[Rfam]
RNA sequence: GAUGGCCUAAUGAUGAUUAUCUUUUGCCGUUUACCCAUCUGAUUCUUUUUGAUGAGAACAUUUGAGUCUGAUGUGCCAUC
Dot-bracket structure: ((((((....................................................................))))))
Numbered sequence: 001g002a003u004g005g006c007c008u009a010a011u012g013a014u015g016a017u018u019a020u021c022u023u024u025u026g027c028c029g030u031u032u033a034c035c036c037a038u039c040u041g042a043u044u045c046u047u048u049u050u051g052a053u054g055a056g057a058a059c060a061u062u063u064g065a066g067u068c069u070g071a072u073g074u075g076c077c078a079u080c
Stems, first nucleotide, its partner, number of pairs: 001080006

Rfam assigns this 80-nucleotide RNA sequence from Chelonia mydas to the family "Small nucleolar RNA SNORD87". The family has 10 seed sequences and 539 matches in Rfam 15.1. A reference for the family is Huttenhofer et al. (2001), "RNomics: an experimental approach that identifies 201 candidates for novel, small, non-messenger RNAs in mouse", EMBO J.